[Rfam]
RNA: MIR530 microRNA precursor family
RNA sequence: GCCAAUAUGUUGCUUUUAUCUGCAUUUGCACCUGCACUUGUUUCUUCCUUCAUCUCCUCAAAACUUUAAACACCAGAGCUUCAAAGCUUCGAAUUGCUUCAAAGCUUCAAAGCAUGGCUAAGGCAAGAAAAAAGGAAAGAGAAUUAAGAAAAUGGAAACUUAUGUAUGGAAGGUAGAAAGGAAGAGAAGGAACCAGCAAGAGGUGCAGGUGCCAAUGCAGGUGAAUGCCAUCUUGGU
Numbered sequence: 001g002c003c004a005a006u007a008u009g010u011u012g013c014u015u016u017u018a019u020c021u022g023c024a025u026u027u028g029c030a031c032c033u034g035c036a037c038u039u040g041u042u043u044c045u046u047c048c049u050u051c052a053u054c055u056c057c058u059c060a061a062a063a064c065u066u067u068a069a070a071c072a073c074c075a076g077a078g079c080u081u082c083a084a085a086g087c088u089u090c091g092a093a094u095u096g097c098u099u100c101a102a103a104g105c106u107u108c109a110a111a112g113c114a115u116g117g118c119u120a121a122g123g124c125a126a127g128a129a130a131a132a133a134g135g136a137a138a139g140a141g142a143a144u145u146a147a148g149a150a151a152a153u154g155g156a157a158a159c160u161u162a163u164g165u166a167u168g169g170a171a172g173g174u175a176g177a178a179a180g181g182a183a184g185a186g187a188a189g190g191a192a193c194c195a196g197c198a199a200g201a202g203g204u205g206c207a208g209g210u211g212c213c214a215a216u217g218c219a220g221g222u223g224a225a226u227g228c229c230a231u232c233u234u235g236g237u
Stems, first nucleotide, its partner, number of pairs: 001237005007231003012228002015225012028212012053142003